[Rfam]
RNA sequence: CAGAGCUGGUAAUAAUAAACUAUGUUGUGCCUAGAUGUUCCCGAGUGGUACACUCAACUUAAGUUUAGGAGCGACACAAUUUAGCACCGCCGCUCUA
Numbered sequence: 001c002a003g004a005g006c007u008g009g010u011a012a013u014a015a016u017a018a019a020c021u022a023u024g025u026u027g028u029g030c031c032u033a034g035a036u037g038u039u040c041c042c043g044a045g046u047g048g049u050a051c052a053c054u055c056a057a058c059u060u061a062a063g064u065u066u067a068g069g070a071g072c073g074a075c076a077c078a079a080u081u082u083a084g085c086a087c088c089g090c091c092g093c094u095c096u097a
Stems, first nucleotide, its partner, number of pairs: 002096005009090002024080006030069007043055004
The family of this 97-nucleotide sequence is "DUF3800-V RNA".
The sequence is in the family's curated seed alignment.
The base pairs follow the family's consensus structure, which is taken from published work.
It is annotated as a small RNA.